[Rfam]
This 129-nucleotide RNA sequence from Pseudonocardia asaccharolytica belongs to the Rfam family "ALIL pseudoknot". A reference for the family is Mazauric et al. (2008), "Apical loop-internal loop RNA pseudoknots: a new type of stimulator of -1 translational frameshifting in bacteria", J Biol Chem. Rfam classes the family as a cis-regulatory element. Pairs were carried over by alignment from the consensus structure, which is taken from published work. Its family is annotated with positive regulation of translational frameshifting in the Gene Ontology. The organism belongs to Pseudonocardia asaccharolytica, within Bacteria. A search with the family's covariance model found it, with a score of 56 bits.
RNA sequence: GGCUUUCUUCGCGAGGGAGCUCGACCCUCGACUGCCACGCUCGUAGCGUUCAUCACGGAACAUAAGGACCGGUUCGGAGUCGAGCCGAUCUGCGCCGUGCUGACCGAUUUUGGUGUACAGAUCGCUCCG
Numbered sequence: 001g002g003c004u005u006u007c008u009u010c011g012c013g014a015g016g017g018a019g020c021u022c023g024a025c026c027c028u029c030g031a032c033u034g035c036c037a038c039g040c041u042c043g044u045a046g047c048g049u050u051c052a053u054c055a056c057g058g059a060a061c062a063u064a065a066g067g068a069c070c071g072g073u074u075c076g077g078a079g080u081c082g083a084g085c086c087g088a089u090c091u092g093c094g095c096c097g098u099g100c101u102g103a104c105c106g107a108u109u110u111u112g113g114u115g116u117a118c119a120g121a122u123c124g125c126u127c128c129g
Stems, first nucleotide, its partner, number of pairs: 013029005075129005086124002089121004094116002